[Rfam]
RNA: Bacterial RNase P class A
Organism: Saccharospirillum sp. MSK14-1
RNA sequence: CGAGCUGGCCAGGCAGUCGCCGCUUCGAAAGAAGGGGAGGAAAGUCCGGGCUCCAUAGGGCAGGGUGCCAGAUAACGUCUGGGCGGCGAAAGCCGACGGAAAGUGCAGCAGAAAGGAAACCGCCAUUCGCUUGCGGAUGGUAAGGGUGAAAAGGUGCGGUAAGAGCGCACCGCGGCUCUGGUAACAGAGUCGGCGAUGGUAAACCCCACCUGGAGCAAGGCCAAAUAGAGUCCCAUUAAGGCGCGGCCCGCGCUGGGACCGGGUAGGCUGCUUGACCCGGACGGUGACGUCCGGGCUAGAUGAAUGACUGUCCACGACAGAACCCGGCUUAUCGGCCAGUUCGCCUU
Numbered sequence: 001c002g003a004g005c006u007g008g009c010c011a012g013g014c015a016g017u018c019g020c021c022g023c024u025u026c027g028a029a030a031g032a033a034g035g036g037g038a039g040g041a042a043a044g045u046c047c048g049g050g051c052u053c054c055a056u057a058g059g060g061c062a063g064g065g066u067g068c069c070a071g072a073u074a075a076c077g078u079c080u081g082g083g084c085g086g087c088g089a090a091a092g093c094c095g096a097c098g099g100a101a102a103g104u105g106c107a108g109c110a111g112a113a114a115g116g117a118a119a120c121c122g123c124c125a126u127u128c129g130c131u132u133g134c135g136g137a138u139g140g141u142a143a144g145g146g147u148g149a150a151a152a153g154g155u156g157c158g159g160u161a162a163g164a165g166c167g168c169a170c171c172g173c174g175g176c177u178c179u180g181g182u183a184a185c186a187g188a189g190u191c192g193g194c195g196a197u198g199g200u201a202a203a204c205c206c207c208a209c210c211u212g213g214a215g216c217a218a219g220g221c222c223a224a225a226u227a228g229a230g231u232c233c234c235a236u237u238a239a240g241g242c243g244c245g246g247c248c249c250g251c252g253c254u255g256g257g258a259c260c261g262g263g264u265a266g267g268c269u270g271c272u273u274g275a276c277c278c279g280g281a282c283g284g285u286g287a288c289g290u291c292c293g294g295g296c297u298a299g300a301u302g303a304a305u306g307a308c309u310g311u312c313c314a315c316g317a318c319a320g321a322a323c324c325c326g327g328c329u330u331a332u333c334g335g336c337c338a339g340u341u342c343g344c345c346u347u
Stems, first nucleotide, its partner, number of pairs: 001343010011332001012312007020037002023034004042330003046327005051215004058249004063211005068082005083097001084095004098206002103204002105200002120145002122141008153171006172194001173192008219269004230259005240254005276295008